[Rfam]
RNA sequence: AUCAAACAUCAUUUUACCCGUCGUAUAAUACCGGAGAUAGGGUCCGGAAGUUUCUACCGAGCCGCCGUAAAUGGCUCGACUACGAUCGGGGACGUGCUUAUU
Numbered sequence: 001a002u003c004a005a006a007c008a009u010c011a012u013u014u015u016a017c018c019c020g021u022c023g024u025a026u027a028a029u030a031c032c033g034g035a036g037a038u039a040g041g042g043u044c045c046g047g048a049a050g051u052u053u054c055u056a057c058c059g060a061g062c063c064g065c066c067g068u069a070a071a072u073g074g075c076u077c078g079a080c081u082a083c084g085a086u087c088g089g090g091g092a093c094g095u096g097c098u099u100a101u102u
Stems, first nucleotide, its partner, number of pairs: 018088001020086006029049001031047005058078007
A member of the RNA family "Purine riboswitch aptamer" from Bhargavaea cecembensis, 102 nucleotides long. The organism belongs to Bhargavaea cecembensis, within Bacteria. Rfam describes the family as follows. Riboswitches are metabolite binding domains within certain messenger RNAs that serve as precision sensors for their corresponding targets.